The family of this 130-nucleotide sequence from Streptomyces rubrolavendulae is "Streptomyces RNA 5676". Identified by deep sequencing of transcriptome at the end of exponential growth phase. Appears longer on northern blot than sequencing transcript. This indicates processing step. Streptomyces specific. The base pairs follow the family's consensus structure. The organism belongs to Streptomyces, within Bacteria.
[Rfam]
RNA sequence: CGAUGAGAGAAGAACCCCGCUCGCAGGGGACUGCGGGCGGACCCGGGACGGGACCUCCCCAGUACCGCCCCGGACGUGCCUUCGCGCACGGUGCCGGCGCCUCGCGUGCCGGCGAUCCUCACCGAUCGGA
Numbered sequence: 001c002g003a004u005g006a007g008a009g010a011a012g013a014a015c016c017c018c019g020c021u022c023g024c025a026g027g028g029g030a031c032u033g034c035g036g037g038c039g040g041a042c043c044c045g046g047g048a049c050g051g052g053a054c055c056u057c058c059c060c061a062g063u064a065c066c067g068c069c070c071c072g073g074a075c076g077u078g079c080c081u082u083c084g085c086g087c088a089c090g091g092u093g094c095c096g097g098c099g100c101c102u103c104g105c106g107u108g109c110c111g112g113c114g115a116u117c118c119u120c121a122c123c124g125a126u127c128g129g130a
Base pairs, nucleotide, nucleotide: 004121005120006119007118009117010116017040018039019038020037021036022035023034024033025032026031043073044072045071046070047069049067050066051065053063054062076089077088078087079086093113094112095111096110097109098108099107100106122129123128